[Rfam]
RNA: Listeria sRNA rli28
RNA sequence: ACAAAUGUGUUAUACUACACAAGUAGGAAGUUUAUGACGGUGGCAAUUUCUCAAAAAAAGGGGGACUGCCAAUGUUUUUGCUUGUUUGCUCUUUCCCUAGAAAGGAAUAGUAGUGACUGUCUUUGAAGCAUUGAUGCUUGCGAUUGCUUUCGCAACAUUAAUUGUCAAAAUCAGUAAUAAAAA
Numbered sequence: 001a002c003a004a005a006u007g008u009g010u011u012a013u014a015c016u017a018c019a020c021a022a023g024u025a026g027g028a029a030g031u032u033u034a035u036g037a038c039g040g041u042g043g044c045a046a047u048u049u050c051u052c053a054a055a056a057a058a059a060g061g062g063g064g065a066c067u068g069c070c071a072a073u074g075u076u077u078u079u080g081c082u083u084g085u086u087u088g089c090u091c092u093u094u095c096c097c098u099a100g101a102a103a104g105g106a107a108u109a110g111u112a113g114u115g116a117c118u119g120u121c122u123u124u125g126a127a128g129c130a131u132u133g134a135u136g137c138u139u140g141c142g143a144u145u146g147c148u149u150u151c152g153c154a155a156c157a158u159u160a161a162u163u164g165u166c167a168a169a170a171u172c173a174g175u176a177a178u179a180a181a182a183a
Base pairs, nucleotide, nucleotide: 040156041155043153044152059098060097061096062095063094064093065092068089069088115135117133119131120130122128161178162177163176164175